[Rfam]
RNA sequence: UCCCCCACAGUCCUCCGGUCCUCGUUUCUCGCAAGGGAUCCUAUUGUAGGCACCCGUAUCAUUUGGUUACCCUCACAUAUGCCGCUCUCGAGCCUGUAACAGGACCUCGUGAAUGCCGCAGCCGGAUUAUGGUGGGUAGCGCGUCCUGUGUAGGAUGUACCAAGCGGGCGGGUGAACGAGGUUCGGAACUUAACCCUAAGAAGAUAU
Numbered sequence: 001u002c003c004c005c006c007a008c009a010g011u012c013c014u015c016c017g018g019u020c021c022u023c024g025u026u027u028c029u030c031g032c033a034a035g036g037g038a039u040c041c042u043a044u045u046g047u048a049g050g051c052a053c054c055c056g057u058a059u060c061a062u063u064u065g066g067u068u069a070c071c072c073u074c075a076c077a078u079a080u081g082c083c084g085c086u087c088u089c090g091a092g093c094c095u096g097u098a099a100c101a102g103g104a105c106c107u108c109g110u111g112a113a114u115g116c117c118g119c120a121g122c123c124g125g126a127u128u129a130u131g132g133u134g135g136g137u138a139g140c141g142c143g144u145c146c147u148g149u150g151u152a153g154g155a156u157g158u159a160c161c162a163a164g165c166g167g168g169c170g171g172g173u174g175a176a177c178g179a180g181g182u183u184c185g186g187a188a189c190u191u192a193a194c195c196c197u198a199a200g201a202a203g204a205u206a207u
Base pairs, nucleotide, nucleotide: 009190010189011188015186016185017184018183
Record summary
Shown here is a 207-nucleotide part of an RNA from Fusarium globosum, a member of the family "Ascomycota telomerase RNA". Gene Ontology terms of the family: telomere maintenance via telomerase, telomerase catalytic core complex and telomerase activity. A search with the family's covariance model found it, with a score of 355 bits. NCBI's taxonomy places the organism under Eukaryota, Hypocreales, Nectriaceae, Fusarium, Fusarium fujikuroi species complex. Pairs were carried over by alignment from the consensus structure. A reference for the family is Qi et al. (2013), "The common ancestral core of vertebrate and fungal telomerase RNAs", Nucleic Acids Res.